Rfam assigns this 533-nucleotide part of an RNA from Aedes aegypti to the family "Eukaryotic large subunit ribosomal RNA".
The family's consensus secondary structure is taken from published work.
Rfam links the family to the GO terms ribosome and structural constituent of ribosome.
NCBI's taxonomy places the organism under Eukaryota, Diptera, Culicidae, Aedini, Stegomyia.
RNA sequence: UAGAUUAAUGUAGGUAAGGGAAGUCGGCAAAUUAGAUCCGUAACUUCGGGAUAAGGAUUGGCUCUGAAGACUGGGAUGACUCGGGCUAUACCCUCCCGGGUGCACUCCCCGUCGGCGGUCCGUUCGCGCGGCGCUGCCGCGGGGCCCCGGGGUCCGGGGUUUGCCUCAACGCGUGCCCCCGCGGUCGGCUCGGGUCCGGUUCGCGCCGGCCUCCGGCCGUGGGGCCGCUGCAGUCAUCAAUAAACAGUCAAUUCAGAACUGGCACGGCUGAGGGAAUCCGACUGUCUAAUUAAAACAAAGCAUUGUGAUGGCCUCAAAAGGUGUUGACACAAUGUGAUUUCUGCCCAGUGCUCUGAAUGUCAACGUGAAGAAAUUCAAGCAAGCGCGGGUAAACGGCGGGAGUAACUAUGACUCUCUUAAGGUAGCCAAAUGCCUCGUCAUCUAAUUAGUGACGCGCAUGAAUGGAUUAACGAGAUUCCCUCUGUCCCUAUCUACUAUCUAGCGAAACCACAGCCAAGGGAACGGGCUUGGAA
Numbered sequence: 001u002a003g004a005u006u007a008a009u010g011u012a013g014g015u016a017a018g019g020g021a022a023g024u025c026g027g028c029a030a031a032u033u034a035g036a037u038c039c040g041u042a043a044c045u046u047c048g049g050g051a052u053a054a055g056g057a058u059u060g061g062c063u064c065u066g067a068a069g070a071c072u073g074g075g076a077u078g079a080c081u082c083g084g085g086c087u088a089u090a091c092c093c094u095c096c097c098g099g100g101u102g103c104a105c106u107c108c109c110c111g112u113c114g115g116c117g118g119u120c121c122g123u124u125c126g127c128g129c130g131g132c133g134c135u136g137c138c139g140c141g142g143g144g145c146c147c148c149g150g151g152g153u154c155c156g157g158g159g160u161u162u163g164c165c166u167c168a169a170c171g172c173g174u175g176c177c178c179c180c181g182c183g184g185u186c187g188g189c190u191c192g193g194g195u196c197c198g199g200u201u202c203g204c205g206c207c208g209g210c211c212u213c214c215g216g217c218c219g220u221g222g223g224g225c226c227g228c229u230g231c232a233g234u235c236a237u238c239a240a241u242a243a244a245c246a247g248u249c250a251a252u253u254c255a256g257a258a259c260u261g262g263c264a265c266g267g268c269u270g271a272g273g274g275a276a277u278c279c280g281a282c283u284g285u286c287u288a289a290u291u292a293a294a295a296c297a298a299a300g301c302a303u304u305g306u307g308a309u310g311g312c313c314u315c316a317a318a319a320g321g322u323g324u325u326g327a328c329a330c331a332a333u334g335u336g337a338u339u340u341c342u343g344c345c346c347a348g349u350g351c352u353c354u355g356a357a358u359g360u361c362a363a364c365g366u367g368a369a370g371a372a373a374u375u376c377a378a379g380c381a382a383g384c385g386c387g388g389g390u391a392a393a394c395g396g397c398g399g400g401a402g403u404a405a406c407u408a409u410g411a412c413u414c415u416c417u418u419a420a421g422g423u424a425g426c427c428a429a430a431u432g433c434c435u436c437g438u439c440a441u442c443u444a445a446u447u448a449g450u451g452a453c454g455c456g457c458a459u460g461a462a463u464g465g466a467u468u469a470a471c472g473a474g475a476u477u478c479c480c481u482c483u484g485u486c487c488c489u490a491u492c493u494a495c496u497a498u499c500u501a502g503c504g505a506a507a508c509c510a511c512a513g514c515c516a517a518g519g520g521a522a523c524g525g526g527c528u529u530g531g532a533a
Base pairs, nucleotide, nucleotide: 001501002500003499004498010495011494012493013492014491015490016489018487019486020485035059036058037057038056039055044049060260061259063257064256065255066254067253068252069249070248071247072246073245075238076237077236078235079234080233081232084165085164086163088161091158092156095152096151097150099148100147102145105144106143107142108141110139111138113136114135115134116133117132119130121128122127261265272480273479274478275477276476277475278474279472280471283297284296285295300335301334302333303332304331305330306329307328311322312321313320314319339466340465341464343397344396345395348394349393350390351389352388353387355386358385359384360383366377367376368375369374398416399415400414401413402412403411417421437453438452439451440450441449514531515530516529517528518527